[Rfam]
Nucleotides: 058
Stems, first nucleotide, its partner, number of pairs: 004048005010022005033058006039051002
Number, partner (000 for none) and nucleotide at each position: 001000a002000a003000c004048c005047g006046u007045u008044g009000g010022c011021c012020c013019c014018g015000u016000u017000c018014c019013g020012g021011g022010g023000c024000g025000c026000a027000g028000u029000c030000a031000g032000a033058c034057u035056u036055a037054a038053g039051c040050c041000a042000g043000g044008c045007a046006a047005c048004g049000g050040g051039g052000g053038c054037u055036u056035a057034a058033g